[Rfam]
RNA sequence: GGGGAUGAUCGGUUUCGACAGCGGCUGUCGAAGCAGGUGAAGCGUGUCGAGGAAGCGGCAAUGAUCUCGUUAACCAUAUGUCGCAACCAAUAAUCGCCAAUUCCAAGAGCGAUUCCCAGUCCUUCGCCCUCGCUGCCUAAUAACAGCGACUGAAGGACCCUAAAAGGGUGUCAGACCGGGGAUGUUCCCGACCCGGACCCUGGCAUAAUCUAGGGAACUAAACCAUUGGGCCCGGUCACGGGGUCCGGUGGGAAAUCAAACAGUGACUGGGCCCGUCGGCGACUUGUUCGCGUGAUUGCCGGGGCCGAGAAAAGCACAGCGAACUGCACACGGAGAAGCCCUGAUUCUGCACCGGUGGACGCGGGUUCGAUUCCCGCCAUCUCCACUC
Numbered sequence: 001g002g003g004g005a006u007g008a009u010c011g012g013u014u015u016c017g018a019c020a021g022c023g024g025c026u027g028u029c030g031a032a033g034c035a036g037g038u039g040a041a042g043c044g045u046g047u048c049g050a051g052g053a054a055g056c057g058g059c060a061a062u063g064a065u066c067u068c069g070u071u072a073a074c075c076a077u078a079u080g081u082c083g084c085a086a087c088c089a090a091u092a093a094u095c096g097c098c099a100a101u102u103c104c105a106a107g108a109g110c111g112a113u114u115c116c117c118a119g120u121c122c123u124u125c126g127c128c129c130u131c132g133c134u135g136c137c138u139a140a141u142a143a144c145a146g147c148g149a150c151u152g153a154a155g156g157a158c159c160c161u162a163a164a165a166g167g168g169u170g171u172c173a174g175a176c177c178g179g180g181g182a183u184g185u186u187c188c189c190g191a192c193c194c195g196g197a198c199c200c201u202g203g204c205a206u207a208a209u210c211u212a213g214g215g216a217a218c219u220a221a222a223c224c225a226u227u228g229g230g231c232c233c234g235g236u237c238a239c240g241g242g243g244u245c246c247g248g249u250g251g252g253a254a255a256u257c258a259a260a261c262a263g264u265g266a267c268u269g270g271g272c273c274c275g276u277c278g279g280c281g282a283c284u285u286g287u288u289c290g291c292g293u294g295a296u297u298g299c300c301g302g303g304g305c306c307g308a309g310a311a312a313a314g315c316a317c318a319g320c321g322a323a324c325u326g327c328a329c330a331c332g333g334a335g336a337a338g339c340c341c342u343g344a345u346u347c348u349g350c351a352c353c354g355g356u357g358g359a360c361g362c363g364g365g366u367u368c369g370a371u372u373c374c375c376g377c378c379a380u381c382u383c384c385a386c387u388c
Stems, first nucleotide, its partner, number of pairs: 001384007019357002022354003030347003034343004043332005048069005055084006130149006169205006176196005184218006223251009234268006270306005277301003282297001284295001286324004361377005
Overview
The family of this 388-nucleotide RNA sequence from Streptomyces sp. 3213.3 is "transfer-messenger RNA". Gene Ontology term of the family: RNA catabolic process. Pairs were carried over by alignment from the consensus structure, which is taken from published work. NCBI's taxonomy places the organism under Bacteria, Actinomycetes, Kitasatosporales, Streptomycetaceae, Streptomyces. For this family Rfam cites "Probing the structure of the Escherichia coli 10Sa RNA (tmRNA)" (Felden et al., RNA, 1997). Clan: tRNA clan.